Annotation:
The family of this 75-nucleotide RNA from Haemonchus placei is "mir-5928 microRNA precursor family". Taxonomically the source falls in Haemonchus (Eukaryota, Opisthokonta, Eumetazoa, Chromadorea).
[Rfam]
RNA sequence: GGCACAAAGUCGAAGUAGAAUAGUUCAGUAGGAUCAGAUAAUCCUUCUAAUCUGCUCUACUUCAAAGUUGAGCCC
Numbered sequence: 001g002g003c004a005c006a007a008a009g010u011c012g013a014a015g016u017a018g019a020a021u022a023g024u025u026c027a028g029u030a031g032g033a034u035c036a037g038a039u040a041a042u043c044c045u046u047c048u049a050a051u052c053u054g055c056u057c058u059a060c061u062u063c064a065a066a067g068u069u070g071a072g073c074c075c
Base pairs, nucleotide, nucleotide: 001074002073003072005070006069007068012063013062014061015060016059017058018057019056021054022053023052025050027048028047030045032043033042034041

Pairs were carried over by alignment from the consensus structure, which was predicted with RNAalifold.